[Rfam]
RNA sequence: CAGAAAUGGGGGCUCCUUUGAGGACAAAGAAAGCAUUUCGGAUCAUCUUUUCUCUCAGUGAAGCAGCCAUCCUUUGGACUGAAGGGAGCUCCUAAUUCUU
Numbered sequence: 001c002a003g004a005a006a007u008g009g010g011g012g013c014u015c016c017u018u019u020g021a022g023g024a025c026a027a028a029g030a031a032a033g034c035a036u037u038u039c040g041g042a043u044c045a046u047c048u049u050u051u052c053u054c055u056c057a058g059u060g061a062a063g064c065a066g067c068c069a070u071c072c073u074u075u076g077g078a079c080u081g082a083a084g085g086g087a088g089c090u091c092c093u094a095a096u097u098c099u100u
Base pairs, nucleotide, nucleotide: 007094008093009092010091011090012089013088014087015086016085017084018083022080023079025077027075028074029073
MIR319 microRNA precursor family: a 100-nucleotide sequence from Amborella trichopoda. Gene Ontology terms of the family: miRNA-mediated post-transcriptional gene silencing and RISC complex. The sequence is in the family's curated seed alignment. The organism belongs to Amborella, within Eukaryota.